The family of this 100-nucleotide sequence from Cryobacterium lyxosi is "mraW RNA". The family's RNA type in Rfam is cis-regulatory element.
[Rfam]
RNA sequence: UCUAGCCCCUGGCGCCUGACUCCCCGCCGUUUUUGCCCUGACACACUUCCCCCGUGCCAGGUCGAAAUGGAGGGGAAUCAGGCUUCACGGACUAGCCCGG
Numbered sequence: 001u002c003u004a005g006c007c008c009c010u011g012g013c014g015c016c017u018g019a020c021u022c023c024c025c026g027c028c029g030u031u032u033u034u035g036c037c038c039u040g041a042c043a044c045a046c047u048u049c050c051c052c053c054g055u056g057c058c059a060g061g062u063c064g065a066a067a068u069g070g071a072g073g074g075g076a077a078u079c080a081g082g083c084u085u086c087a088c089g090g091a092c093u094a095g096c097c098c099g100g
Stems, first nucleotide, its partner, number of pairs: 010087003014083003018079002021076005027070004032066004037061004042056003